[Rfam]
RNA sequence: CCUAGCUAUACUUGUUUAAUACAAGUUACUAGGUCACAAGUCAGUUUAUUAGCACAUUAUUAAGGUUUAUUUUAAGUCAUAAAAUUCAACCACAACAAUUAGUAGCGAUGAUUUGCUUAAAAGGGGUGUGUGAAACUUGAAGUGGUGGUGGUAAUAAUUGAUAAAUUGGCUACUUUUA
Dot-bracket structure: (((((.((.(((((.......))))))))))))......((((((((((....(...(..(...........................(((((..(((.(....((.......................))...).)))..)))))....)..)...)..))))))))))........